[Rfam]
RNA sequence: AAAAGAAGGGAACGGUUGCUGCUGAUGUAGUUCUUAAAUUCACACAAUUUAUAUCACAGUGGCUGUUCUUUUUUGUU
Numbered sequence: 001a002a003a004a005g006a007a008g009g010g011a012a013c014g015g016u017u018g019c020u021g022c023u024g025a026u027g028u029a030g031u032u033c034u035u036a037a038a039u040u041c042a043c044a045c046a047a048u049u050u051a052u053a054u055c056a057c058a059g060u061g062g063c064u065g066u067u068c069u070u071u072u073u074u075g076u077u
Stems, first nucleotide, its partner, number of pairs: 004074002007071007016062006023056002026053004
RNA: mir-6 microRNA precursor family